Shown here is a 117-nucleotide sequence from Arachidicoccus ginsenosidivorans, a member of the family "SAM riboswitch aptamer (S box leader)".

RNA sequence: AUCUUAUCAAGAAAGGCAGAGGGAUUGGCCCGAUGAAGCCUUGGCAACCUCACGUAAGUGAAAGGUGCCAAAUCCAACCGUUUUAGUAGUUUAUUUUACUAAUCGGGUAGAUAAGUC
Numbered sequence: 001a002u003c004u005u006a007u008c009a010a011g012a013a014a015g016g017c018a019g020a021g022g023g024a025u026u027g028g029c030c031c032g033a034u035g036a037a038g039c040c041u042u043g044g045c046a047a048c049c050u051c052a053c054g055u056a057a058g059u060g061a062a063a064g065g066u067g068c069c070a071a072a073u074c075c076a077a078c079c080g081u082u083u084u085a086g087u088a089g090u091u092u093a094u095u096u097u098a099c100u101a102a103u104c105g106g107g108u109a110g111a112u113a114a115g116u117c
Base pairs, nucleotide, nucleotide: 003115004114005113006112007111008110013042014041015040016039017038021031022030023029025077026076027075028074043069044068045067046066048065049064050061051060052059053058073109078106079105080104082102083101

The family's consensus secondary structure is taken from published work. A search with the family's covariance model found it, with a score of 88 bits.